Shown here is a 131-nucleotide sequence from Galbibacter marinus, a member of the family "SAM riboswitch aptamer (S box leader)". Gene Ontology term of the family: regulation of gene expression.
RNA sequence: UUGUUAUCAAGAAAGGCGGAAGGAAUAGACCUUGUGAUGCCUUAGCAACCCUUAUAGGUGAAUGGAAUUUCCAAUUCAUAGAACGAGAAGGUGCUACAUUCUACUGCCGUUAAAAUGCAGGUAGAUAACGC
Numbered sequence: 001u002u003g004u005u006a007u008c009a010a011g012a013a014a015g016g017c018g019g020a021a022g023g024a025a026u027a028g029a030c031c032u033u034g035u036g037a038u039g040c041c042u043u044a045g046c047a048a049c050c051c052u053u054a055u056a057g058g059u060g061a062a063u064g065g066a067a068u069u070u071c072c073a074a075u076u077c078a079u080a081g082a083a084c085g086a087g088a089a090g091g092u093g094c095u096a097c098a099u100u101c102u103a104c105u106g107c108c109g110u111u112a113a114a115a116u117g118c119a120g121g122u123a124g125a126u127a128a129c130g131c
Stems, first nucleotide, its partner, number of pairs: 002130007013043005021032003026103004044095004049091002051087003099123001104120004
Dot-bracket structure: .(((((((....(((((...(((..[[[[)))......)))))((((.(((((...............................)))..))))))...(]]]]((((.........))))..)))))))).